[Rfam]
RNA sequence: UGACCCCCGAUGGCGGGGCAAGGCCAUCAUCCCUCCCUGUUGGACUUGGCCCGGAGUUCGCUCCGGGCCCUUUUU
Numbered sequence: 001u002g003a004c005c006c007c008c009g010a011u012g013g014c015g016g017g018g019c020a021a022g023g024c025c026a027u028c029a030u031c032c033c034u035c036c037c038u039g040u041u042g043g044a045c046u047u048g049g050c051c052c053g054g055a056g057u058u059c060g061c062u063c064c065g066g067g068c069c070c071u072u073u074u075u
Stems, first nucleotide, its partner, number of pairs: 009028006048069008
Background: Rfam assigns this 75-nucleotide sequence from Rubellimicrobium rubrum to the family "Singlet oxygen resistance RNA X". Rfam classes the family as a small RNA. Rfam links the family to the GO term response to photooxidative stress. A reference for the family is Peng et al. (2016), "Regulation of a polyamine transporter by the conserved 3' UTR-derived sRNA SorX confers resistance to singlet oxygen and organic hydroperoxides in Rhodobacter sphaeroides", RNA Biol. Taxonomically the source falls in Rubellimicrobium (Bacteria, Pseudomonadota, Alphaproteobacteria, Rhodobacterales). From the family's description: SorX (RSs2461)like SorY is a singlet oxygen induced sRNA that counteracts oxidative stress by targeting mRNA for a transporter in Rhodobacter. A search with the family's covariance model found it, with a score of 56 bits.